[Rfam]
RNA sequence: CCGCGGAUAGGGAGGCGCCGUCAUCUGGGGAGUAGCCAGCCGCCUUCGGGCGGGCCCUUGCGUCAACAUACUUGGUCGAGAGGCCAUGGCGCAGGGGGAGCGGGAAUACCGUUC
Numbered sequence: 001c002c003g004c005g006g007a008u009a010g011g012g013a014g015g016c017g018c019c020g021u022c023a024u025c026u027g028g029g030g031a032g033u034a035g036c037c038a039g040c041c042g043c044c045u046u047c048g049g050g051c052g053g054g055c056c057c058u059u060g061c062g063u064c065a066a067c068a069u070a071c072u073u074g075g076u077c078g079a080g081a082g083g084c085c086a087u088g089g090c091g092c093a094g095g096g097g098g099a100g101c102g103g104g105a106a107u108a109c110c111g112u113u114c
Stems, first nucleotide, its partner, number of pairs: 040053003056096010073086005098114006
RNA: Manganese Mn2+ riboswitch aptamer (yybP-ykoY)
Organism: Novosphingobium sp.